RNA sequence: GUUGAUGACCGGUUCGUAAUAACGUUUCAGGACCCGGAGGGCAGUACUCCGGCGCCUCCACCACGAACGCAGCGGCGCUGCGUUUCUGAUGGGGGCGAAAUAGGUUCGACUGGGCGGUAAAGGGAUCGCGAGUUCAGCUUCACUUCGGUGAGGUACGAUGCGACUGUCGGUAGGGACUCGACCGGUUCGACGCGGGCAACCCCCGUUUCGGGCACCUGACCAAAUCCUAAAUGCCAACGAUAACGUUGUCAUGGAUGCCCGCCUCGCGGCGUAA
Dot-bracket structure: (((((......((((........(((.(((...((((.(.......).))))(((((((...............................)))))))............)))))).......)))).......)))))........................................................................................................................................
The family of this 274-nucleotide sequence from Methylobacterium sp. WL8 is "permuted transfer-messenger RNA". For this family Rfam cites "Variations on the tmRNA gene" (Mao et al., RNA Biol, 2010). The family's consensus secondary structure is taken from published work. The source organism's lineage runs through Bacteria, Alphaproteobacteria, Hyphomicrobiales, Methylobacteriaceae and Methylobacterium. A search with the family's covariance model found it, with a score of 90 bits. Gene Ontology term of the family: RNA catabolic process. The family's RNA type in Rfam is non-coding RNA gene.